This 73-nucleotide RNA sequence from Pseudomonas putida belongs to the Rfam family "narK RNA". It is one of the family's seed sequences.
RNA sequence: GGCCCAGCUCUUGCUGAAGAUAUCGCACCGGUAGCCAACGGCGGUUGCCCACAAACCCCGACAAAGACGUCGC
Numbered sequence: 001g002g003c004c005c006a007g008c009u010c011u012u013g014c015u016g017a018a019g020a021u022a023u024c025g026c027a028c029c030g031g032u033a034g035c036c037a038a039c040g041g042c043g044g045u046u047g048c049c050c051a052c053a054a055a056c057c058c059c060g061a062c063a064a065a066g067a068c069g070u071c072g073c
Stems, first nucleotide, its partner, number of pairs: 030049007

Pairs were carried over by alignment from the consensus structure, which is taken from published work. The organism belongs to Pseudomonas putida, within Bacteria.